A member of the RNA family "mir-210 microRNA precursor family" from Chanos chanos, 98 nucleotides long. NCBI's taxonomy places the organism under Eukaryota, Metazoa, Gnathostomata, Neopterygii, Chanos. It scores 76 bits against the family's covariance model. The literature on the family includes a 2005 paper in Proc Natl Acad Sci U S A by Cai et al., "Kaposi's sarcoma-associated herpesvirus expresses an array of viral microRNAs in latently infected cells". Pairs were carried over by alignment from the consensus structure, which was predicted with WAR.
RNA sequence: UCUGAGAGCAGGUAAGCCACUGACUAACGCACAUUGCGCCUAUUCUCUAUUCCACUGUGCGUGUGACAGCGGCUAACCAGCUUUUGGAUAUUUCUCCC
Numbered sequence: 001u002c003u004g005a006g007a008g009c010a011g012g013u014a015a016g017c018c019a020c021u022g023a024c025u026a027a028c029g030c031a032c033a034u035u036g037c038g039c040c041u042a043u044u045c046u047c048u049a050u051u052c053c054a055c056u057g058u059g060c061g062u063g064u065g066a067c068a069g070c071g072g073c074u075a076a077c078c079a080g081c082u083u084u085u086g087g088a089u090a091u092u093u094c095u096c097c098c
Stems, first nucleotide, its partner, number of pairs: 005084005011078002015074004020069003024065001025063002028061006035054002
Dot-bracket structure: ....(((((.((..((((.(((.(((.((((((.((................)).)))))))).).))).))))..)).)))))..............